RNA sequence: UAUUGAUAAAGGCAAACCCAUUGAAAGAUGGCGACGCAAAGCUACAGGGGCUAAGACGAAAUUUCCGUUAUGCCAGCCAGUUACCGGU
Numbered sequence: 001u002a003u004u005g006a007u008a009a010a011g012g013c014a015a016a017c018c019c020a021u022u023g024a025a026a027g028a029u030g031g032c033g034a035c036g037c038a039a040a041g042c043u044a045c046a047g048g049g050g051c052u053a054a055g056a057c058g059a060a061a062u063u064u065c066c067g068u069u070a071u072g073c074c075a076g077c078c079a080g081u082u083a084c085c086g087g088u
Base pairs, nucleotide, nucleotide: 012037013036018031019030020029021028022027040082041081042080043079047078048077049074050073051072056068057067058066
Dot-bracket structure: ...........((....(((((....)))))....))..((((...(((((....(((.......)))...)))..))))))......
A member of the RNA family "c-di-GMP-I riboswitch aptamer" from Paenibacillus albiflavus, 88 nucleotides long. The organism belongs to Paenibacillus, within Bacteria. Pairs were carried over by alignment from the consensus structure, which is taken from published work.